[Rfam]
RNA sequence: GACUGCUUGACGGGGUGCCGGUAGAUCCGGCUGAGAUGAUGCAAGCGCUACAGGCGCCGAGCAUUGGUCCCGUUGAACCUGAUCUGGCUAAUUCCCGUAAGGGAGGGUACCAGCGGAGGGAUCAAGCAGCGGCACGUC
Numbered sequence: 001g002a003c004u005g006c007u008u009g010a011c012g013g014g015g016u017g018c019c020g021g022u023a024g025a026u027c028c029g030g031c032u033g034a035g036a037u038g039a040u041g042c043a044a045g046c047g048c049u050a051c052a053g054g055c056g057c058c059g060a061g062c063a064u065u066g067g068u069c070c071c072g073u074u075g076a077a078c079c080u081g082a083u084c085u086g087g088c089u090a091a092u093u094c095c096c097g098u099a100a101g102g103g104a105g106g107g108u109a110c111c112a113g114c115g116g117a118g119g120g121a122u123c124a125a126g127c128a129g130c131g132g133c134a135c136g137u138c
Stems, first nucleotide, its partner, number of pairs: 006126005011072004016066001017031005038065005078119003084113004
TPP riboswitch aptamer (THI element): a 138-nucleotide RNA from Zymobacter palmae. It scores 66 bits against the family's covariance model. The base pairs follow the family's consensus structure, which is taken from published work.